[Rfam]
RNA: Selenocysteine insertion sequence 1
Organism: Desmophyllum pertusum
RNA sequence: CUGUUUUUAUGAUGACUUUACUGUAAACUCUACAUAAGCUUGUAAAGUUGGAAGCUUUUAACAG
Numbered sequence: 001c002u003g004u005u006u007u008u009a010u011g012a013u014g015a016c017u018u019u020a021c022u023g024u025a026a027a028c029u030c031u032a033c034a035u036a037a038g039c040u041u042g043u044a045a046a047g048u049u050g051g052a053a054g055c056u057u058u059u060a061a062c063a064g
Stems, first nucleotide, its partner, number of pairs: 001064005014049008023040001029038001031036001